[Rfam]
RNA: Plant signal recognition particle RNA
RNA sequence: GUCGAGCUCAUUCGCGAGAGCUUGUAACCCAAGCGGGGGCAAUGGGUGGUUCAGAUGCUUGGUUACGCUUGUGAGCUUGGGUCCAGAUGGGGCGUAUGGUUGUCUCGCCCGUUCCAAGUUGGGUAGUGAGAUGCAUGGCCUGGGUGAAAGCUUGGGUCGCAUUUCUCGUAAAGUGGAGGGGACCGUGUGAGGCUGGCUUCACAGAGCAACGAAUACCUCCCGCUCUCAACGGUGGAAGGAUAACGGGCCGCCGCACCAUCUACCCUUCAUGGUCCACAGGCAAACCAUCAGCGGACAACCAUCUUU
Numbered sequence: 001g002u003c004g005a006g007c008u009c010a011u012u013c014g015c016g017a018g019a020g021c022u023u024g025u026a027a028c029c030c031a032a033g034c035g036g037g038g039g040c041a042a043u044g045g046g047u048g049g050u051u052c053a054g055a056u057g058c059u060u061g062g063u064u065a066c067g068c069u070u071g072u073g074a075g076c077u078u079g080g081g082u083c084c085a086g087a088u089g090g091g092g093c094g095u096a097u098g099g100u101u102g103u104c105u106c107g108c109c110c111g112u113u114c115c116a117a118g119u120u121g122g123g124u125a126g127u128g129a130g131a132u133g134c135a136u137g138g139c140c141u142g143g144g145u146g147a148a149a150g151c152u153u154g155g156g157u158c159g160c161a162u163u164u165c166u167c168g169u170a171a172a173g174u175g176g177a178g179g180g181g182a183c184c185g186u187g188u189g190a191g192g193c194u195g196g197c198u199u200c201a202c203a204g205a206g207c208a209a210c211g212a213a214u215a216c217c218u219c220c221c222g223c224u225c226u227c228a229a230c231g232g233u234g235g236a237a238g239g240a241u242a243a244c245g246g247g248c249c250g251c252c253g254c255a256c257c258a259u260c261u262a263c264c265c266u267u268c269a270u271g272g273u274c275c276a277c278a279g280g281c282a283a284a285c286c287a288u289c290a291g292c293g294g295a296c297a298a299c300c301a302u303c304u305u306u
Stems, first nucleotide, its partner, number of pairs: 001040003004023006011016001028037003042306001044304008056293004061286004068280006075274001077272002079265004085259001089256001091254001093253002101250002104247004109239002112237005118230006125224003128167004133162001136159010175220005186211003193204003